[Rfam]
RNA sequence: CGCCACUUGUCGGAGUGCUUUCGAGCUGAGACCAUAUUGGGAUCCGUCGAACCUGUUGGGUUAACACCUGCGUAGGGAAACAAGUUAAAAUUCAGU
Number, nucleotide and partner (000 for none) at each position: 001c000002g000003c000004c000005a000006c084007u083008u082009g081010u080011c046012g045013g044014a043015g000016u040017g026018c025019u024020u000021u000022c000023g000024a019025g018026c017027u000028g000029a000030g000031a000032c000033c039034a038035u000036a000037u000038u034039g033040g016041g000042a000043u014044c013045c012046g011047u000048c000049g000050a000051a000052c076053c075054u074055g073056u000057u070058g069059g068060g067061u000062u000063a000064a000065c000066a000067c060068c059069u058070g057071c000072g000073u055074a054075g053076g052077g000078a000079a000080a010081c009082a008083a007084g006085u000086u000087a000088a000089a000090a000091u000092u000093c000094a000095g000096u000
This 96-nucleotide RNA from Pasteurella felis belongs to the Rfam family "TPP riboswitch aptamer (THI element)". The base pairs follow the family's consensus structure, which is taken from published work. On this family, see Rodionov et al., J Biol Chem 2002: "Comparative genomics of thiamin biosynthesis in procaryotes. New genes and regulatory mechanisms". It scores 56 bits against the family's covariance model.